[Rfam]
RNA: Small nucleolar RNA SNORD17
RNA sequence: GUAAAAUGAUGAAUGUGUUUAUCCAUUCGCAGAGUGCAGCCUGCCACUCACCCCACAGCACACAGUUCUGUUUUACACUCUGGGUGUCGUGCAUCCAUCUUGUACCAACUGGUCAAUCGGUGUUUUACUGAGGGGCUGUUGGUCCCUGUUUGGGUGCCUGUGGGUAUGAGGGGGUUUGGCAGAGUUCGACCCUUCUAGGAUCCAACUCAACAAAGAUGAUUGAUGCAAUCUGAUUAC
Numbered sequence: 001g002u003a004a005a006a007u008g009a010u011g012a013a014u015g016u017g018u019u020u021a022u023c024c025a026u027u028c029g030c031a032g033a034g035u036g037c038a039g040c041c042u043g044c045c046a047c048u049c050a051c052c053c054c055a056c057a058g059c060a061c062a063c064a065g066u067u068c069u070g071u072u073u074u075a076c077a078c079u080c081u082g083g084g085u086g087u088c089g090u091g092c093a094u095c096c097a098u099c100u101u102g103u104a105c106c107a108a109c110u111g112g113u114c115a116a117u118c119g120g121u122g123u124u125u126u127a128c129u130g131a132g133g134g135g136c137u138g139u140u141g142g143u144c145c146c147u148g149u150u151u152g153g154g155u156g157c158c159u160g161u162g163g164g165u166a167u168g169a170g171g172g173g174g175u176u177u178g179g180c181a182g183a184g185u186u187c188g189a190c191c192c193u194u195c196u197a198g199g200a201u202c203c204a205a206c207u208c209a210a211c212a213a214a215g216a217u218g219a220u221u222g223a224u225g226c227a228a229u230c231u232g233a234u235u236a237c
Stems, first nucleotide, its partner, number of pairs: 010236003014232001017229003024222002027219003030215001034211002039180003043175001044173002047170003050165004054160002058087004063082001065079001067077001069075001091157007104143003109138001111136001113134002117131006182208005188202002191199002